Shown here is a 93-nucleotide sequence from Boudabousia marimammalium, a member of the family "SAM riboswitch aptamer (S box leader)". The match comes from Rfam's covariance-model search (52 bits). About the family: The SAM riboswitch is found upstream of a number of genes which code for proteins involved in methionine or cysteine biosynthesis in Gram-positive bacteria.
[Rfam]
RNA sequence: AAACCAUCCAGAGCGACGGAGAGACUUGGCUCGUCGAAGUUGCAGCAACCCCCAAAUCUUUGGUGCGGGUGCUACCGCCAAGACCGAUGGAGG
Numbered sequence: 001a002a003a004c005c006a007u008c009c010a011g012a013g014c015g016a017c018g019g020a021g022a023g024a025c026u027u028g029g030c031u032c033g034u035c036g037a038a039g040u041u042g043c044a045g046c047a048a049c050c051c052c053c054a055a056a057u058c059u060u061u062g063g064u065g066c067g068g069g070u071g072c073u074a075c076c077g078c079c080a081a082g083a084c085c086g087a088u089g090g091a092g093g
Stems, first nucleotide, its partner, number of pairs: 004090005013043005021032003026081004044073004049069002051065001053063001077085001